[Rfam]
RNA: MIR6217 microRNA precursor family
Organism: Miscanthus lutarioriparius
RNA sequence: GGCUAUAAAAAUAACUUAUUUUGUAGCCACUUUGAGUUACGAUAAUUACUAUGUUAAUUUAUGAGACUAUAAUAACUCAUUGCUAAGUGGUUUACUAUAACGUUAUGAUAAAUAUCCUCAUGUGUUAUAGUAACCCAACUAUCAUAAAUAUGUAUUAACAUUAUCGUAAAUUAGUAUAUAAAAUUAUCGUAAAUGGAGGUGGCUACAGAAUAACUUAUUUUUGUACCU
Numbered sequence: 001g002g003c004u005a006u007a008a009a010a011a012u013a014a015c016u017u018a019u020u021u022u023g024u025a026g027c028c029a030c031u032u033u034g035a036g037u038u039a040c041g042a043u044a045a046u047u048a049c050u051a052u053g054u055u056a057a058u059u060u061a062u063g064a065g066a067c068u069a070u071a072a073u074a075a076c077u078c079a080u081u082g083c084u085a086a087g088u089g090g091u092u093u094a095c096u097a098u099a100a101c102g103u104u105a106u107g108a109u110a111a112a113u114a115u116c117c118u119c120a121u122g123u124g125u126u127a128u129a130g131u132a133a134c135c136c137a138a139c140u141a142u143c144a145u146a147a148a149u150a151u152g153u154a155u156u157a158a159c160a161u162u163a164u165c166g167u168a169a170a171u172u173a174g175u176a177u178a179u180a181a182a183a184u185u186a187u188c189g190u191a192a193a194u195g196g197a198g199g200u201g202g203c204u205a206c207a208g209a210a211u212a213a214c215u216u217a218u219u220u221u222u223g224u225a226c227c228u
Stems, first nucleotide, its partner, number of pairs: 001228002004225011016213018037192011050178013065165002069161002074155001080147003087142006093132011107117001